Shown here is a 179-nucleotide sequence from Paenibacillus athensensis, a member of the family "glmS glucosamine-6-phosphate activated ribozyme aptamer".
It scores 92 bits against the family's covariance model.
NCBI's taxonomy places the organism under Bacteria, Bacillota, Bacilli, Paenibacillaceae, Paenibacillus.
The family's consensus secondary structure is taken from published work.
RNA sequence: ACGGUAAGUUAAGCGCCAGAACUCGCGGACGGGACGGAGUUAUAUCGGAAUCGGCGAGUUGACGAGGUGAAGGUGUUCGAAUUUUCGGCGGGGACCUUCCGGCAUGCAGAUGAGUGCCGUUAAGCAGGACAGCAAACCGCUUGGGCGACUGAGCGAACAAGAGUCCGGCAUCGUUGUUU
Numbered sequence: 001a002c003g004g005u006a007a008g009u010u011a012a013g014c015g016c017c018a019g020a021a022c023u024c025g026c027g028g029a030c031g032g033g034a035c036g037g038a039g040u041u042a043u044a045u046c047g048g049a050a051u052c053g054g055c056g057a058g059u060u061g062a063c064g065a066g067g068u069g070a071a072g073g074u075g076u077u078c079g080a081a082u083u084u085u086c087g088g089c090g091g092g093g094a095c096c097u098u099c100c101g102g103c104a105u106g107c108a109g110a111u112g113a114g115u116g117c118c119g120u121u122a123a124g125c126a127g128g129a130c131a132g133c134a135a136a137c138c139g140c141u142u143g144g145g146c147g148a149c150u151g152a153g154c155g156a157a158c159a160a161g162a163g164u165c166c167g168g169c170a171u172c173g174u175u176g177u178u179u
Stems, first nucleotide, its partner, number of pairs: 020060007029051001069099005077088004100119006124169002127166004138155007